[Rfam]
RNA sequence: GAUCAUGAGUUCCGACGCACAGCCCUGGCUUGUCGGACGGCAACCCUCUCCCGUAGCGGGGUGCCCCAGGUGAGGAUCGGGCCGCAUGGCACACCGCAUGUGGCAAGUACGGCGC
Numbered sequence: 001g002a003u004c005a006u007g008a009g010u011u012c013c014g015a016c017g018c019a020c021a022g023c024c025c026u027g028g029c030u031u032g033u034c035g036g037a038c039g040g041c042a043a044c045c046c047u048c049u050c051c052c053g054u055a056g057c058g059g060g061g062u063g064c065c066c067c068a069g070g071u072g073a074g075g076a077u078c079g080g081g082c083c084g085c086a087u088g089g090c091a092c093a094c095c096g097c098a099u100g101u102g103g104c105a106a107g108u109a110c111g112g113c114g115c
Base pairs, nucleotide, nucleotide: 001078002077003076004075009038011037012036013035014034015033016032021030022029039065040064041063044061045060046059048056049055081104082103083102084101085100086099087098088097

The record is a 115-nucleotide RNA from Kocuria sp. WRN011, which matches "SAM (S-adenosyl methionine) riboswitch aptamer" in Rfam. A search with the family's covariance model found it, with a score of 94 bits. About the family: SAM-IV is a mRNA element that regulates gene expression via direct sensing of S-adenosylmethionine (SAM or AdoMet). SAM-IV riboswitches share conserved nucleotide positions with the previously described SAM-I riboswitches sequence analysis and molecular recognition experiments suggest that SAM-I and SAM-IV riboswitches share similar ligand binding sites, but have different scaffolds. Rfam links the family to the GO terms regulation of gene expression and S-adenosylmethionine metabolic process. The family's consensus secondary structure is taken from published work. Its Rfam clan is "SAM clan". NCBI's taxonomy places the organism under Bacteria, Actinomycetota, Actinomycetes, Micrococcaceae, Kocuria. Rfam 15.1 lists 2,360 matches to the family in 1,305 species.